This 93-nucleotide RNA sequence from Pogona vitticeps belongs to the Rfam family "Vault RNA". It is annotated as a non-coding RNA gene. The base pairs follow the family's consensus structure, which is taken from published work.

RNA sequence: AGGUCAGCUUAGCCCAACGGUUCCUUCUUGCUUGUGAUACUUGCGAAUUCACUGCUACAAGUUCAAGUCCCGUGGGCGCUGUCUGGCCUUUUA
Numbered sequence: 001a002g003g004u005c006a007g008c009u010u011a012g013c014c015c016a017a018c019g020g021u022u023c024c025u026u027c028u029u030g031c032u033u034g035u036g037a038u039a040c041u042u043g044c045g046a047a048u049u050c051a052c053u054g055c056u057a058c059a060a061g062u063u064c065a066a067g068u069c070c071c072g073u074g075g076g077c078g079c080u081g082u083c084u085g086g087c088c089u090u091u092u093a
Stems, first nucleotide, its partner, number of pairs: 002088006012077004017073004025067002